Purine riboswitch aptamer: a 104-nucleotide RNA sequence from Heyndrickxia oleronia. Pairs were carried over by alignment from the consensus structure, which is taken from published work. Rfam links the family to the GO term purine nucleobase biosynthetic process. A search with the family's covariance model found it, with a score of 73 bits.
[Rfam]
RNA sequence: AAAAACACAAAUUAAUAUCCUUGUAUAAUAUCAGUGGUAAUGGUCUGAUAGUUUCUACCUGGCAGCCGAUAAAAUGCUAGACUACAAGGAAGUAUGAAUAAUGA
Number, nucleotide and partner (000 for none) at each position: 001a000002a000003a000004a000005a000006c000007a000008c000009a000010a000011a000012u000013u000014a000015a000016u000017a000018u090019c089020c088021u087022u086023g085024u084025a083026u000027a000028a000029u050030a049031u048032c047033a046034g045035u000036g000037g000038u000039a000040a000041u000042g000043g000044u000045c034046u033047g032048a031049u030050a029051g000052u000053u000054u000055c000056u000057a000058c000059c080060u079061g078062g077063c076064a075065g000066c000067c000068g000069a000070u000071a000072a000073a000074a000075u064076g063077c062078u061079a060080g059081a000082c000083u025084a024085c023086a022087a021088g020089g019090a018091a000092g000093u000094a000095u000096g000097a000098a000099u000100a000101a000102u000103g000104a000